[Rfam]
RNA sequence: UAAAGCUGACAUAAAAACACAUCGCAGUUGGUAGUCUGUGAGUACAACAUGUAUCAGUAACCUUCCCCUUCCGAGGUCGUCCAUUGUCAAUUUUUUAAGG
Numbered sequence: 001u002a003a004a005g006c007u008g009a010c011a012u013a014a015a016a017a018c019a020c021a022u023c024g025c026a027g028u029u030g031g032u033a034g035u036c037u038g039u040g041a042g043u044a045c046a047a048c049a050u051g052u053a054u055c056a057g058u059a060a061c062c063u064u065c066c067c068c069u070u071c072c073g074a075g076g077u078c079g080u081c082c083a084u085u086g087u088c089a090a091u092u093u094u095u096u097a098a099g100g
Base pairs, nucleotide, nucleotide: 004092005091007089008088009087010086011085022041023040024039025038026037027036042054043053044052045051046050065076066075
Source information: The family of this 100-nucleotide RNA from Streptococcus pasteurianus is "azaaromatic riboswitch aptamer (yjdF RNA)". The source organism's lineage runs through Bacteria, Bacillati, Bacillota, Lactobacillales and Streptococcus pasteurianus. Pairs were carried over by alignment from the consensus structure, which is taken from published work. It scores 74 bits against the family's covariance model.